RT-14 RNA: a 145-nucleotide RNA sequence.
It is annotated as a small RNA.
RNA sequence: UUAUCUUCAUAAGUCAGAAGUUCACACUUAAGGGUGUAGUUCCAGUACAUGAAGAAGUAUAAGGGUAAUUUCUCCAUAGCUUUAAAGCUAAAAAAUAAAAAAGGAACAUCAUAGUUAGUAGUUUCUAUGAAAGGUGUGGUGUUGU
Number, nucleotide and partner (000 for none) at each position: 001u000002u056003a000004u055005c054006u053007u052008c051009a000010u000011a000012a000013g048014u047015c000016a000017g000018a000019a000020g042021u000022u039023c000024a037025c036026a035027c034028u033029u000030a000031a000032g000033g028034g027035u026036g025037u024038a000039g022040u000041u000042c020043c000044a000045g000046u000047a014048c013049a000050u000051g008052a007053a006054g005055a004056a002057g000058u000059a000060u000061a000062a000063g000064g000065g000066u000067a000068a000069u000070u000071u000072c000073u000074c000075c000076a000077u000078a089079g088080c087081u086082u000083u000084a000085a000086a081087g080088c079089u078090a000091a000092a000093a000094a000095a000096u000097a000098a000099a000100a000101a000102a000103g000104g145105a143106a142107c141108a140109u139110c138111a137112u136113a135114g000115u133116u000117a000118g000119u000120a000121g128122u127123u000124u000125c000126u000127a122128u121129g000130a000131a000132a000133g115134g000135u113136g112137u111138g110139g109140u108141g107142u106143u105144g000145u104